RNA sequence: GUGAAAAUAAGAAACUUAUCGAACAAACCUGUGUGGGAAACAGGAACUGCCGAGGGCAGUAA
Numbered sequence: 001g002u003g004a005a006a007a008u009a010a011g012a013a014a015c016u017u018a019u020c021g022a023a024c025a026a027a028c029c030u031g032u033g034u035g036g037g038a039a040a041c042a043g044g045a046a047c048u049g050c051c052g053a054g055g056g057c058a059g060u061a062a
Stems, first nucleotide, its partner, number of pairs: 028044005046060006
This 62-nucleotide sequence belongs to the Rfam family "RAGATH-30 RNA". It is one of the family's seed sequences. Rfam classes the family as a small RNA.